This 54-nucleotide sequence belongs to the Rfam family "Plastid-psbA-3 3UTR RNA". The sequence is in the family's curated seed alignment.
RNA sequence: AGGAGCAAUAACAAAUUUCUUGUUCUAUCAAGAAGUUUGUUAUUGCGCCUUUAU
Numbered sequence: 001a002g003g004a005g006c007a008a009u010a011a012c013a014a015a016u017u018u019c020u021u022g023u024u025c026u027a028u029c030a031a032g033a034a035g036u037u038u039g040u041u042a043u044u045g046c047g048c049c050u051u052u053a054u
Stems, first nucleotide, its partner, number of pairs: 001050003005046008017034006